[Rfam]
RNA sequence: CCGUGCUAGACGGGGAGGUAGCGGUGCCCUGUAACCCGCAAUCCGCUGUAGCGGGGUUGAAUUCCUGUUAGAGGUAUUGCCGAUGUGAGGCUGGCGUUUGCACGUAGUGUUGACGGCCGGGUCCUCCGCAAUGGACGCUUGUGAACCCGGUCAGGUUCGGAAGAAAGCAGCCGUAAGCAAGAAGGUCCAUGUGCCGGGGGGCAGCCUGGCCCGAGCUAACGACAAAAGUGCCGCUUGGAUCGCAAUCAUCGAUAACAGGUGCACGG
Numbered sequence: 001c002c003g004u005g006c007u008a009g010a011c012g013g014g015g016a017g018g019u020a021g022c023g024g025u026g027c028c029c030u031g032u033a034a035c036c037c038g039c040a041a042u043c044c045g046c047u048g049u050a051g052c053g054g055g056g057u058u059g060a061a062u063u064c065c066u067g068u069u070a071g072a073g074g075u076a077u078u079g080c081c082g083a084u085g086u087g088a089g090g091c092u093g094g095c096g097u098u099u100g101c102a103c104g105u106a107g108u109g110u111u112g113a114c115g116g117c118c119g120g121g122u123c124c125u126c127c128g129c130a131a132u133g134g135a136c137g138c139u140u141g142u143g144a145a146c147c148c149g150g151u152c153a154g155g156u157u158c159g160g161a162a163g164a165a166a167g168c169a170g171c172c173g174u175a176a177g178c179a180a181g182a183a184g185g186u187c188c189a190u191g192u193g194c195c196g197g198g199g200g201g202c203a204g205c206c207u208g209g210c211c212c213g214a215g216c217u218a219a220c221g222a223c224a225a226a227a228g229u230g231c232c233g234c235u236u237g238g239a240u241c242g243c244a245a246u247c248a249u250c251g252a253u254a255a256c257a258g259g260u261g262c263a264c265g266g
Base pairs, nucleotide, nucleotide: 001266002265003264004263005262006261009058010057011056012030013029014028015027017025019023035055036054037053038052039051064259065258066257067256068255069254070253073250074249075248081242082241083240084239086237087236088235089234093232094231097226098225099224100223104220105219106217107216108215115211116210117209118208119207120206121205122204123200124199125198126197127196128195129191130190132189133188134187135186136185138181139180140179141178142177148173149172150171151170156165157164158163
Rfam assigns this 266-nucleotide RNA sequence from Xylanibacillus composti to the family "Bacterial large signal recognition particle RNA". Rfam's curators write: The signal recognition particle (SRP) is a universally conserved ribonucleoprotein involved in the co-translational targeting of proteins to membranes. The match comes from Rfam's covariance-model search (212 bits). Rfam classes the family as a non-coding RNA gene. NCBI's taxonomy places the organism under Bacteria, Bacillota, Bacilli, Caryophanales, Xylanibacillus. The family's consensus secondary structure is taken from published work. A reference for the family is Rosenblad et al. (2003), "SRPDB: Signal Recognition Particle Database", Nucleic Acids Res.